[Rfam]
RNA sequence: AAGACUGUAUGUGACUGGCGAACACGGAUUACCGUGAGGGAGCAUAUAGUUUCGAAGAGUCGUUCGCCUGGGCAGAGGUA
Numbered sequence: 001a002a003g004a005c006u007g008u009a010u011g012u013g014a015c016u017g018g019c020g021a022a023c024a025c026g027g028a029u030u031a032c033c034g035u036g037a038g039g040g041a042g043c044a045u046a047u048a049g050u051u052u053c054g055a056a057g058a059g060u061c062g063u064u065c066g067c068c069u070g071g072g073c074a075g076a077g078g079u080a
Stems, first nucleotide, its partner, number of pairs: 003051010015039002017068005024035004059073003
This 80-nucleotide RNA sequence from Litchfieldia salsa belongs to the Rfam family "ZMP/ZTP riboswitch aptamer (pfl RNA motif)".
Taxonomically the source falls in Litchfieldia (Bacteria, Bacillati, Bacillota, Caryophanales).
Its family is annotated with regulation of purine nucleotide biosynthetic process and one-carbon metabolic process in the Gene Ontology.